[Rfam]
The family of this 71-nucleotide sequence from Mus spicilegus is "mir-344 microRNA precursor family". A reference for the family is Chiang et al. (2010), "Mammalian microRNAs: experimental evaluation of novel and previously annotated genes", Genes Dev.

RNA sequence: UUAUCAGUCAAGCUUCUGGCUAUAUUUCAGGACUUAUCUAGUCCUGGGUAUAACCAAAGCCUGCUUGUUUG
Numbered sequence: 001u002u003a004u005c006a007g008u009c010a011a012g013c014u015u016c017u018g019g020c021u022a023u024a025u026u027u028c029a030g031g032a033c034u035u036a037u038c039u040a041g042u043c044c045u046g047g048g049u050a051u052a053a054c055c056a057a058a059g060c061c062u063g064c065u066u067g068u069u070u071g
Base pairs, nucleotide, nucleotide: 007065009063012060013059014058017056018055019054021052022051023050024049027041029039030038031037
The family's consensus secondary structure was predicted with RNAalifold. It scores 57 bits against the family's covariance model.